[Rfam]
Nucleotides: 386
Stems, first nucleotide, its partner, number of pairs: 001382007021355004027349004034340001036338002038334004045323004049061005054070003117141004148184004153179004158174004164199006204228008214244004246293009261279003268316004274310003359375005
Number, partner (000 for none) and nucleotide at each position: 001382g002381g003380g004379g005378c006377u007376g008000a009000c010000u011000u012000g013000g014000a015000u016000u017000u018000c019000g020000a021355c022354a023353g024352a025000u026000u027349u028348c029347u030346u031000g032000u033000c034340g035000c036338a037337c038334a039333g040332a041331u042000a043000g044000c045323a046322u047321g048320c049061c050060a051059a052058g053057c054070g055069c056068u057053g058052c059051u060050u061049g062000u063000a064000a065000a066000a067000c068056a069055g070054c071000a072000a073000c074000a075000a076000a077000a078000a079000u080000a081000a082000c083000u084000g085000u086000a087000a088000a089000c090000a091000a092000c093000a094000c095000a096000g097000a098000u099000u100000a101000c102000g103000c104000u105000c106000c107000a108000g109000c110000u111000u112000a113000c114000g115000c116000u117141a118140a119139a120138g121000c122000u123000g124000c125000g126000u127000g128000a129000g130000u131000u132000a133000a134000u135000c136000u137000c138120c139119u140118u141117u142000u143000g144000g145000a146000g147000c148184u149183g150182g151181a152000c153179u154178g155177a156176u157000u158174a159173g160172a161171a162000u163000u164199u165198c166197u167196a168195g169194c170000g171161u172160u173159u174158u175000a176156a177155u178154c179153g180000c181151u182150c183149c184148a185000u186000a187000a188000c189000c190000u191000u192000a193000a194169g195168c196167u197166a198165g199164a200000c201000g202000c203000u204228u205227u206226u207225a208224a209223a210222a211221g212000g213000u214244g215243g216242u217241u218000c219000g220000c221211c222210u223209u224208u225207u226206a227205a228204a229000c230000u231000a232000a233000g234000a235000a236000a237000c238000a239000a240000g241217a242216a243215c244214u245000c246293u247292u248291g249290a250289a251288a252287c253286u254285a255000u256000c257000u258000c259000a260000a261279g262278g263277u264000u265000u266000u267000a268316g269315a270314a271313a272000g273000u274310u275309g276308g277263a278262c279261c280000a281000g282000a283000g284000c285254u286253a287252g288251u289250u290249u291248u292247a293246a294000g295000g296000c297000u298000a299000a300000a301000a302000a303000a304000c305000c306000a307000a308276c309275c310274a311000a312000u313271u314270u315269u316268c317000u318000a319000a320048g321047c322046a323045u324000u325000g326000u327000a328000g329000a330000a331041g332040u333039u334038u335000g336000u337037g338036u339000u340034u341000a342000g343000g344000g345000c346030a347029a348028g349027a350000u351000u352024u353023u354022u355021g356000g357000a358000c359375u360374g361373g362372g363371g364000u365000u366000c367000g368000a369000u370000u371363c372362c373361c374360c375359a376007c377006a378005g379004c380003u381002c382001c383000a384000c385000c386000a